[Rfam]
RNA sequence: GCCUGGAGGGAUUCCUGGCAGAGUGAUUUGGUUUAAUGUAUAUAAAAUCACAUUGCCAGGGAUUUCCAACCAGC
Numbered sequence: 001g002c003c004u005g006g007a008g009g010g011a012u013u014c015c016u017g018g019c020a021g022a023g024u025g026a027u028u029u030g031g032u033u034u035a036a037u038g039u040a041u042a043u044a045a046a047a048u049c050a051c052a053u054u055g056c057c058a059g060g061g062a063u064u065u066c067c068a069a070c071c072a073g074c
Stems, first nucleotide, its partner, number of pairs: 001074002004072003009067002011063011023051007
Rfam assigns this 74-nucleotide RNA from Acipenser ruthenus to the family "mir-23 microRNA precursor family". The organism belongs to Acipenser, within Eukaryota.